[Rfam]
RNA sequence: CCAAAUGAGAAUAACGAGAGAUAUCUUUCAGUAGAUAGCCGAAGAAGCAAUAUAAAAAGAGGCAUCUUUUUAUAGAAACUUUCAGGCAAAAGGAUCGUUAUUUGAUGGAACUCUGGAGAGUCCGAAAAAUCGGCGCCGUAGGAGAAACACAUUCACGAAUGUAAAACUCUCAGGCUAAAAGACAGAGGA
Numbered sequence: 001c002c003a004a005a006u007g008a009g010a011a012u013a014a015c016g017a018g019a020g021a022u023a024u025c026u027u028u029c030a031g032u033a034g035a036u037a038g039c040c041g042a043a044g045a046a047g048c049a050a051u052a053u054a055a056a057a058a059g060a061g062g063c064a065u066c067u068u069u070u071u072a073u074a075g076a077a078a079c080u081u082u083c084a085g086g087c088a089a090a091a092g093g094a095u096c097g098u099u100a101u102u103u104g105a106u107g108g109a110a111c112u113c114u115g116g117a118g119a120g121u122c123c124g125a126a127a128a129a130u131c132g133g134c135g136c137c138g139u140a141g142g143a144g145a146a147a148c149a150c151a152u153u154c155a156c157g158a159a160u161g162u163a164a165a166a167c168u169c170u171c172a173g174g175c176u177a178a179a180a181g182a183c184a185g186a187g188g189a
Stems, first nucleotide, its partner, number of pairs: 001108003010102008022037001026034002038087003044083001045081003051074010111187005120134001122133004135175003141171001143168002